[Rfam]
RNA sequence: CUUGAUAAGGGCAAACCUGUCGAAAGGCAGGGACGCAAAGCUACAGGUCUAAAGCAUUUUGCUAAGACAGCUGGGUUGCCGGGG
Numbered sequence: 001c002u003u004g005a006u007a008a009g010g011g012c013a014a015a016c017c018u019g020u021c022g023a024a025a026g027g028c029a030g031g032g033a034c035g036c037a038a039a040g041c042u043a044c045a046g047g048u049c050u051a052a053a054g055c056a057u058u059u060u061g062c063u064a065a066g067a068c069a070g071c072u073g074g075g076u077u078g079c080c081g082g083g084g
Base pairs, nucleotide, nucleotide: 001084003081004080011036012035016031017030018029019028020027021026034070039077040076041075042074044073045072046071047068048067049066
The record is an 84-nucleotide RNA from Dethiobacter alkaliphilus, which matches "c-di-GMP-I-GGC riboswitch aptamer" in Rfam.
For this family Rfam cites "Bioinformatic analysis of riboswitch structures uncovers variant classes with altered ligand specificity" (Weinberg et al., Proc Natl Acad Sci U S A, 2017).